[Rfam]
A member of the RNA family "Small nucleolar RNA SNORA8" from Microcebus murinus, 138 nucleotides long. Its Rfam clan is "SNORA8 clan". Its family is annotated with nucleolus and RNA processing in the Gene Ontology. The source organism's lineage runs through Eukaryota, Vertebrata, Euteleostomi, Eutheria and Microcebus. Rfam describes the family as follows. ACA8 is a member of the H/ACA class of snoRNA that guide the sites of modification of uridines to pseudouridines. The match comes from Rfam's covariance-model search (113 bits). It is annotated as an H/ACA-box small nucleolar RNA.
RNA sequence: UGCACUGCACAGUUCUGCAUUUAGCAGUUAAUUCCUGCUAAGGCAUGCAAAGGUCAGUGCCACAGAAAUUCAGUAUCUGGCAUCUUUGGUUUUCUCGGCUUUGUGCAUAUUUAACCUUGUAUUUGUAUUGAUAGAGUA
Numbered sequence: 001u002g003c004a005c006u007g008c009a010c011a012g013u014u015c016u017g018c019a020u021u022u023a024g025c026a027g028u029u030a031a032u033u034c035c036u037g038c039u040a041a042g043g044c045a046u047g048c049a050a051a052g053g054u055c056a057g058u059g060c061c062a063c064a065g066a067a068a069u070u071c072a073g074u075a076u077c078u079g080g081c082a083u084c085u086u087u088g089g090u091u092u093u094c095u096c097g098g099c100u101u102u103g104u105g106c107a108u109a110u111u112u113a114a115c116c117u118u119g120u121a122u123u124u125g126u127a128u129u130g131a132u133a134g135a136g137u138a
Stems, first nucleotide, its partner, number of pairs: 002060006014053003017046001020043003023039005064126001066124004070119001072117002080106004